[Rfam]
RNA: Small nucleolar RNA SNORA33
RNA sequence: AAGCCAAUUAAUCUGCUUAUCUGUAUAUGUUUCUGCAAAAAUCUAGAAAGAGCUGGCAGUAAUGUUGUCAAGUAAUGAGCCUUGAGGCCAAGUGGCUGUCUUUAAGAUCCCUAAAAAAGACUAUAUCG
Number, nucleotide and partner (000 for none) at each position: 001a000002a054003g053004c000005c000006a000007a000008u000009u000010a000011a000012u039013c000014u037015g036016c035017u000018u000019a000020u000021c000022u000023g000024u000025a000026u000027a000028u000029g000030u000031u000032u000033c000034u000035g016036c015037a014038a000039a012040a000041a000042u000043c000044u000045a000046g000047a000048a000049a000050g000051a000052g000053c003054u002055g000056g000057c000058a000059g000060u000061a000062a000063u000064g000065u000066u000067g121068u120069c119070a000071a000072g000073u000074a000075a000076u000077g000078a000079g108080c000081c106082u105083u104084g103085a102086g000087g100088c000089c098090a000091a000092g000093u000094g000095g000096c000097u000098g089099u000100c087101u000102u085103u084104a083105a082106g081107a000108u079109c000110c000111c000112u000113a000114a000115a000116a000117a000118a000119g069120a068121c067122u000123a000124u000125a000126u000127c000128g000